[Rfam]
RNA sequence: CUGCUGAAAUGAUGAGUUUUCAUGUCUCUUCUCUGAAUUUUUAACUGGAGAACGAUUUUAGCUCUGACUACAGCAG
Numbered sequence: 001c002u003g004c005u006g007a008a009a010u011g012a013u014g015a016g017u018u019u020u021c022a023u024g025u026c027u028c029u030u031c032u033c034u035g036a037a038u039u040u041u042u043a044a045c046u047g048g049a050g051a052a053c054g055a056u057u058u059u060a061g062c063u064c065u066g067a068c069u070a071c072a073g074c075a076g
Stems, first nucleotide, its partner, number of pairs: 001076004
Small nucleolar RNA SNORD111: a 76-nucleotide RNA from Polypterus senegalus. Taxonomically the source falls in Polypterus (Eukaryota, Eumetazoa, Euteleostomi, Cladistia). Its family is annotated with RNA processing and nucleolus in the Gene Ontology. It is annotated as a C/D-box small nucleolar RNA.